[Rfam]
RNA sequence: AAGCAUCAGUGAUGAUCAAAGUUAUCCCUGUCAUAAGACUAAGUGUUGAGAACGCACGUCAGACUGAGAUGCUA
Numbered sequence: 001a002a003g004c005a006u007c008a009g010u011g012a013u014g015a016u017c018a019a020a021g022u023u024a025u026c027c028c029u030g031u032c033a034u035a036a037g038a039c040u041a042a043g044u045g046u047u048g049a050g051a052a053c054g055c056a057c058g059u060c061a062g063a064c065u066g067a068g069a070u071g072c073u074a
Stems, first nucleotide, its partner, number of pairs: 002073006
Shown here is a 74-nucleotide sequence from Clytia hemisphaerica, a member of the family "Small nucleolar RNA R38". Lineage of the source: Eukaryota > Metazoa > Leptothecata > Clytiidae > Clytia. Rfam 15.1 lists 2,295 matches to the family in 1,305 species. snoR38 is a C/D box small nucleolar RNA conserved across yeast, human, Arabidopsis and rice. It is annotated as a C/D-box small nucleolar RNA. Rfam links the family to the GO terms RNA processing and nucleolus.